RNA sequence: GCAUUACUUCGGUGGUCCGAGGUGCAGGCUUCAAACUUGUAGCCCGUUAGCGCCGGAGUGGUUCGAUUCCACCUUGC
Numbered sequence: 001g002c003a004u005u006a007c008u009u010c011g012g013u014g015g016u017c018c019g020a021g022g023u024g025c026a027g028g029c030u031u032c033a034a035a036c037u038u039g040u041a042g043c044c045c046g047u048u049a050g051c052g053c054c055g056g057a058g059u060g061g062u063u064c065g066a067u068u069c070c071a072c073c074u075u076g077c
Stems, first nucleotide, its partner, number of pairs: 001077003007022006023041006043056002046053002058072004
Overview: Selenocysteine transfer RNA: a 77-nucleotide RNA from Dracunculus medinensis. The source organism's lineage runs through Eukaryota, Bilateria, Nematoda, Rhabditida and Dracunculus.